[Rfam]
RNA sequence: CUCUGGUAUCUAGAGAUCCCUCAGACUAAUUCUACUGAGUAAAAAUCUCUAGCAGUGGCGCCCGAACAGGGACUUGAAAGUGAAAGUAACCGGAG
Numbered sequence: 001c002u003c004u005g006g007u008a009u010c011u012a013g014a015g016a017u018c019c020c021u022c023a024g025a026c027u028a029a030u031u032c033u034a035c036u037g038a039g040u041a042a043a044a045a046u047c048u049c050u051a052g053c054a055g056u057g058g059c060g061c062c063c064g065a066a067c068a069g070g071g072a073c074u075u076g077a078a079a080g081u082g083a084a085a086g087u088a089a090c091c092g093g094a095g
Stems, first nucleotide, its partner, number of pairs: 001095007010052008020039001022037001024035001054087001056085001059082002061071003073080002
Dot-bracket structure: (((((((..((((((((..(.(.(..........).).).....)))))))).(.(..(((((.....))).((....))))..).).)))))))

Record summary: The record is a 95-nucleotide RNA from Lentivirus simimdef, which matches "HIV primer binding site (PBS)" in Rfam. Gene Ontology term of the family: tRNA binding. This family consists of several, structured HIV primer binding sites (PBSs). tRNA(3)(Lys) binds to the PBS to initiate reverse transcription.